[Rfam]
RNA sequence: GGGCGCGGCCGCGACUGGCGAGUCAGGUGGAGCACCACCGGGAAGCGGCCGAUGGCAUCCGUCCCGCAUCGCACGCCUGGGUGGGGGAG
Numbered sequence: 001g002g003g004c005g006c007g008g009c010c011g012c013g014a015c016u017g018g019c020g021a022g023u024c025a026g027g028u029g030g031a032g033c034a035c036c037a038c039c040g041g042g043a044a045g046c047g048g049c050c051g052a053u054g055g056c057a058u059c060c061g062u063c064c065c066g067c068a069u070c071g072c073a074c075g076c077c078u079g080g081g082u083g084g085g086g087g088a089g
Stems, first nucleotide, its partner, number of pairs: 006051007015042002017077004027038004067083004

The record is an 89-nucleotide RNA from Bowdeniella nasicola, which matches "ZMP/ZTP riboswitch aptamer (pfl RNA motif)" in Rfam. The organism belongs to Bowdeniella, within Bacteria. Pairs were carried over by alignment from the consensus structure, which is taken from published work. A search with the family's covariance model found it, with a score of 48 bits.